[Rfam]
Record summary: The record is a 77-nucleotide sequence, which matches "HDV ribozyme from F. prausnitzii" in Rfam.

RNA sequence: GCCGCUCGAAACUUUGCACACCUCUACGUGGUGAGCGGCAGGCAACGCAGUGUGGAUACUGUGGCUGAGAUGCAGGG
Numbered sequence: 001g002c003c004g005c006u007c008g009a010a011a012c013u014u015u016g017c018a019c020a021c022c023u024c025u026a027c028g029u030g031g032u033g034a035g036c037g038g039c040a041g042g043c044a045a046c047g048c049a050g051u052g053u054g055g056a057u058a059c060u061g062u063g064g065c066u067g068a069g070a071u072g073c074a075g076g077g
Stems, first nucleotide, its partner, number of pairs: 001039007020032003046063007
Dot-bracket structure: (((((((............(((.......))))))))))......(((((((....)))))))..............

On this family, see Webb et al., Science 2009: "Widespread occurrence of self-cleaving ribozymes". The sequence is in the family's curated seed alignment.